[Rfam]
RNA sequence: UCACUGGCCAACGGUGGGGUCUGAAGGAAGCUGAAGGGGGAAUCUGGAACAUAGCGCAAGCGAACCGAGGUUGGCUCGUCAGGUGGGUAACCUUGCAUAAAGUGGGAAAGCCCGAAAGCUGGAUAACCUGAGGAGUUAAGACGGAUGCGUUCAGAUUCAGGCAGGUAAAC
Number, nucleotide and partner (000 for none) at each position: 001u017002c016003a015004c014005u013006g012007g000008c000009c000010a000011a000012c006013g005014g004015u003016g002017g001018g000019g000020u000021c000022u000023g000024a000025a000026g000027g000028a000029a000030g170031c000032u168033g000034a166035a000036g000037g000038g162039g000040g000041a000042a156043u155044c154045u153046g152047g151048a000049a000050c147051a146052u145053a000054g000055c000056g000057c000058a000059a000060g000061c000062g000063a000064a000065c144066c143067g142068a000069g000070g000071u000072u000073g000074g136075c135076u134077c000078g000079u131080c130081a129082g128083g127084u126085g113086g112087g111088u110089a000090a000091c106092c105093u104094u000095g000096c000097a000098u000099a000100a000101a000102g000103u000104g093105g092106g091107a000108a000109a000110g088111c087112c086113c085114g000115a000116a000117a000118g000119c000120u000121g000122g000123a000124u000125a000126a084127c083128c082129u081130g080131a079132g000133g000134a076135g075136u074137u000138a000139a000140g000141a000142c067143g066144g065145a052146u051147g050148c000149g000150u000151u047152c046153a045154g044155a043156u042157u000158c000159a000160g000161g000162c038163a000164g000165g000166u034167a000168a032169a000170c030
This 170-nucleotide sequence from Desulforamulus profundi belongs to the Rfam family "Group II catalytic intron D1-D4-3". Rfam's curators write: Group II introns are found in rRNA, tRNA and mRNA of organelles in fungi, plants and protists, and also in mRNA in bacteria. The organism belongs to Desulforamulus, within Bacteria. It scores 56 bits against the family's covariance model.